[Rfam]
RNA sequence: GGUGCGAUAUUUUGGCAUGAAGGGCCUUCUUCAAGACCCGGGUCGAAUUUUUGGGAACCCUCGGGGAAUGAGGGUU
Numbered sequence: 001g002g003u004g005c006g007a008u009a010u011u012u013u014g015g016c017a018u019g020a021a022g023g024g025c026c027u028u029c030u031u032c033a034a035g036a037c038c039c040g041g042g043u044c045g046a047a048u049u050u051u052u053g054g055g056a057a058c059c060c061u062c063g064g065g066g067a068a069u070g071a072g073g074g075u076u
Base pairs, nucleotide, nucleotide: 022039023038024037026035027034028033057075058074059073060072061071062070
A member of the RNA family "SmY spliceosomal RNA" from Haemonchus placei, 76 nucleotides long.
The literature on the family includes a 2009 paper in RNA Biol by Jones et al., "A survey of nematode SmY RNAs".
A search with the family's covariance model found it, with a score of 40 bits.
Taxonomically the source falls in Haemonchus (Eukaryota, Ecdysozoa, Rhabditomorpha, Trichostrongylidae).
The base pairs follow the family's consensus structure, which is taken from published work.
Rfam classes the family as a spliceosomal small nuclear RNA.